[Rfam]
Rfam assigns this 48-nucleotide RNA sequence to the family "ssnA RNA".
The sequence is in the family's curated seed alignment.
The base pairs follow the family's consensus structure, which is taken from published work.
RNA sequence: AGCAAGACAGCUGCAACGGAGUGCCAUGCGCACGGGCUGACACCUGUC
Numbered sequence: 001a002g003c004a005a006g007a008c009a010g011c012u013g014c015a016a017c018g019g020a021g022u023g024c025c026a027u028g029c030g031c032a033c034g035g036g037c038u039g040a041c042a043c044c045u046g047u048c
Stems, first nucleotide, its partner, number of pairs: 008039005021033004